Eukaryotic small subunit ribosomal RNA: a 503-nucleotide part of an RNA from Athene cunicularia. The match comes from Rfam's covariance-model search (960 bits). Gene Ontology terms of the family: structural constituent of ribosome and ribosome. For this family Rfam cites "The comparative RNA web (CRW) site: an online database of comparative sequence and structure information for ribosomal, intron, and other RNAs" (Cannone et al., BMC Bioinformatics, 2002).
RNA sequence: CAGUUAAAAAGCUUGUAGUUGGAUCUUGGGAUCGAGCUGGCAGUCUGCCGCAAGGCGAGCCACCGCCUGUCCCAGCCCCUGCCUCUUGAAACCCCCUCAAUGCUCUUAGUUGAGUGUCCCUGGGGCCUGAAGUGUUUUACUUUGAGAAAAUUAGAGUGUUCAAAGCAGGCCGGCCACCGACAUGCUGCAGCUAGGAAUAAUGGAAUAGGACUCAUUUUGCUGGAUUUUGAAAACAGGACCAUGAUUAAGAGGAACAGCCACUAGAGAUGAAAUUCUUGGACUAGUGGAAGGUGCCCUAGAAUGAAAGCAUUUACCAAGAAUGUUUUCAUUAAUCAAGAACAAAAGUUGGAGGUUCAAAGACAAUCAGAUACUGUCGUAGUUCUGACCAUAAACAAAGCUGACUGGUGAUCUGGCAGCAUUAUUCCCAUGACCCACUGGGCAGCUCCCAGGAAACUCAAGUCUUUGGGUUCCGGGGGAGUACAGUGCAGAGCUGAAACUUGAAU
Numbered sequence: 001c002a003g004u005u006a007a008a009a010a011g012c013u014u015g016u017a018g019u020u021g022g023a024u025c026u027u028g029g030g031a032u033c034g035a036g037c038u039g040g041c042a043g044u045c046u047g048c049c050g051c052a053a054g055g056c057g058a059g060c061c062a063c064c065g066c067c068u069g070u071c072c073c074a075g076c077c078c079c080u081g082c083c084u085c086u087u088g089a090a091a092c093c094c095c096c097u098c099a100a101u102g103c104u105c106u107u108a109g110u111u112g113a114g115u116g117u118c119c120c121u122g123g124g125g126c127c128u129g130a131a132g133u134g135u136u137u138u139a140c141u142u143u144g145a146g147a148a149a150a151u152u153a154g155a156g157u158g159u160u161c162a163a164a165g166c167a168g169g170c171c172g173g174c175c176a177c178c179g180a181c182a183u184g185c186u187g188c189a190g191c192u193a194g195g196a197a198u199a200a201u202g203g204a205a206u207a208g209g210a211c212u213c214a215u216u217u218u219g220c221u222g223g224a225u226u227u228u229g230a231a232a233a234c235a236g237g238a239c240c241a242u243g244a245u246u247a248a249g250a251g252g253a254a255c256a257g258c259c260a261c262u263a264g265a266g267a268u269g270a271a272a273u274u275c276u277u278g279g280a281c282u283a284g285u286g287g288a289a290g291g292u293g294c295c296c297u298a299g300a301a302u303g304a305a306a307g308c309a310u311u312u313a314c315c316a317a318g319a320a321u322g323u324u325u326u327c328a329u330u331a332a333u334c335a336a337g338a339a340c341a342a343a344a345g346u347u348g349g350a351g352g353u354u355c356a357a358a359g360a361c362a363a364u365c366a367g368a369u370a371c372u373g374u375c376g377u378a379g380u381u382c383u384g385a386c387c388a389u390a391a392a393c394a395a396a397g398c399u400g401a402c403u404g405g406u407g408a409u410c411u412g413g414c415a416g417c418a419u420u421a422u423u424c425c426c427a428u429g430a431c432c433c434a435c436u437g438g439g440c441a442g443c444u445c446c447c448a449g450g451a452a453a454c455u456c457a458a459g460u461c462u463u464u465g466g467g468u469u470c471c472g473g474g475g476g477a478g479u480a481c482a483g484u485g486c487a488g489a490g491c492u493g494a495a496a497c498u499u500g501a502a503u
Stems, first nucleotide, its partner, number of pairs: 001472001003470001009469001011340001013338002018333003251327004255322002259318001260282001264275003302307001345386006355379001359375004397468003400461003404444003409439005416432001419430002448455002474499003482492003